PyrR binding site: a 122-nucleotide sequence from Sutcliffiella cohnii. Rfam describes the family as follows. This family represents the PyrR binding site and terminator structure. Rfam links the family to the GO terms pyrimidine nucleobase biosynthetic process and pyrimidine nucleobase transport. It is annotated as a cis-regulatory element. The family's consensus secondary structure is taken from published work. The match comes from Rfam's covariance-model search (64 bits).
[Rfam]
RNA sequence: UAGACCUUUAAAAUUAGUCCCGUGAGGCUGAGAAGGUAACGGUAUGCAGAAGCUAGACUUUUCUAGUCUAUUUCAUUCUGCCAACUAAACCUCUCAUCCUAUAAGGUGAGAGGUUUUUUCGU
Numbered sequence: 001u002a003g004a005c006c007u008u009u010a011a012a013a014u015u016a017g018u019c020c021c022g023u024g025a026g027g028c029u030g031a032g033a034a035g036g037u038a039a040c041g042g043u044a045u046g047c048a049g050a051a052g053c054u055a056g057a058c059u060u061u062u063c064u065a066g067u068c069u070a071u072u073u074c075a076u077u078c079u080g081c082c083a084a085c086u087a088a089a090c091c092u093c094u095c096a097u098c099c100u101a102u103a104a105g106g107u108g109a110g111a112g113g114u115u116u117u118u119u120c121g122u
Stems, first nucleotide, its partner, number of pairs: 004037006014031006045075002048072002051069002053066005087116012
Dot-bracket structure: ...((((((....((((((......)))))))))))).......((.((.(((((((....))))).)).)).))...........((((((((((((......))))))))))))......